[Rfam]
The family of this 80-nucleotide RNA from Triplophysa tibetana is "mir-190 microRNA precursor family". The source organism's lineage runs through Eukaryota, Bilateria, Craniata, Osteoglossocephalai and Triplophysa. Its family is annotated with RISC complex and miRNA-mediated post-transcriptional gene silencing in the Gene Ontology. Its Rfam clan is "mir-50 clan". Pairs were carried over by alignment from the consensus structure, which was predicted with RNAalifold. It scores 70 bits against the family's covariance model.
RNA sequence: GGAGCUGUGUGAUAUGUUUGAUAUUCGGUUGCUUUUCUUAUAUCACGUCAACUAAAUAUCAGACAUAUUCCUACAGAACC
Dot-bracket structure: ....(((((.(((((((((((((((.(((((.................))))).)))))))))))))))..)))))....